[Rfam]
RNA sequence: CAAUAGAGAAGAGGCGCAGCCGACAUGAGUCAAUUUGUUGAGGUUUCCAGACCAAUGAUGCAGAUUAAAAAGGGGAGGUUGCCGAAAUGAUUAACUUGGAAAAUUAAUUGUUGGGCCCUGGCCGAAUAGGUCAGGGACUGUCGCAAGCAAGACUGUUUGCGGGGCGCUUUCUACGAC
Number, nucleotide and partner (000 for none) at each position: 001c000002a000003a000004u000005a000006g172007a000008g170009a169010a168011g167012a000013g000014g000015c000016g082017c081018a080019g079020c078021c077022g000023a000024c074025a000026u000027g000028a000029g000030u000031c000032a066033a065034u064035u063036u062037g061038u060039u000040g000041a000042g000043g000044u000045u000046u000047c000048c000049a000050g000051a000052c000053c000054a000055a000056u000057g000058a000059u000060g038061c037062a036063g035064a034065u033066u032067a000068a000069a000070a000071a000072g000073g000074g024075g000076a000077g021078g020079u019080u018081g017082c016083c000084g000085a000086a112087a111088u110089g109090a108091u107092u106093a105094a104095c000096u102097u101098g000099g000100a000101a097102a096103a000104u094105u093106a092107a091108u090109u089110g088111u087112u086113g139114g138115g000116c136117c135118c134119u133120g132121g131122c130123c129124g000125a000126a000127u000128a000129g123130g122131u121132c120133a119134g118135g117136g116137a000138c114139u113140g000141u162142c161143g160144c159145a158146a157147g156148c000149a000150a000151g000152a000153c000154u000155g000156u147157u146158u145159g144160c143161g142162g141163g000164g000165c000166g000167c011168u010169u009170u008171c000172u006173a000174c000175g000176a000177c000
RNA: Lysine riboswitch aptamer
Organism: Levilactobacillus bambusae